RNA sequence: AGUUUUUUGAUGUUGCAAGUACUGCAUCAGGAACUGAUUGGAUAAGUGUCUGUCACCAUCAGUUCCUAAUGCACUGCCUUCAGCAUCUAAAUA
Numbered sequence: 001a002g003u004u005u006u007u008u009g010a011u012g013u014u015g016c017a018a019g020u021a022c023u024g025c026a027u028c029a030g031g032a033a034c035u036g037a038u039u040g041g042a043u044a045a046g047u048g049u050c051u052g053u054c055a056c057c058a059u060c061a062g063u064u065c066c067u068a069a070u071g072c073a074c075u076g077c078c079u080u081c082a083g084c085a086u087c088u089a090a091a092u093a
Stems, first nucleotide, its partner, number of pairs: 023073005029067009039058003